[Rfam]
RNA sequence: AUGAAUUAAACGCCGAGUUCUCAAAAAUAUGAGAAGCGGGGGAACCGAAUUAAUGGGGUGAGUCCACGUAAGUGGUAGGGCUACCUUACAGUCCGAAUCCGUCAGCUAACUUCGUAGGCGUUGUGAGAAAGAAUGU
Number, nucleotide and partner (000 for none) at each position: 001a000002u000003g000004a000005a000006u000007u000008a000009a000010a000011c120012g119013c118014c117015g000016a000017g000018u035019u034020c033021u032022c031023a030024a000025a000026a000027a000028u000029a000030u023031g022032a021033g020034a019035a018036g115037c114038g113039g112040g111041g110042g000043a000044a000045c000046c055047g054048a000049a000050u000051u000052a000053a000054u047055g046056g100057g099058g098059u000060g000061a000062g000063u000064c075065c074066a073067c072068g000069u000070a000071a000072g067073u066074g065075g064076u000077a000078g094079g093080g092081c091082u000083a000084c000085c000086u000087u000088a000089c000090a000091g081092u080093c079094c078095g000096a000097a000098u058099c057100c056101g000102u000103c000104a000105g000106c000107u000108a000109a000110c041111u040112u039113c038114g037115u036116a000117g014118g013119c012120g011121u000122u000123g000124u000125g000126a000127g000128a000129a000130a000131g000132a000133a000134u000135g000136u000
This 136-nucleotide RNA sequence from Candidatus Syntrophocurvum alkaliphilum belongs to the Rfam family "c-di-AMP riboswitch aptamer (ydaO/yuaA leader)". A search with the family's covariance model found it, with a score of 98 bits. Taxonomically the source falls in Candidatus Syntrophocurvum (Bacteria, Bacillota, Clostridia, Eubacteriales).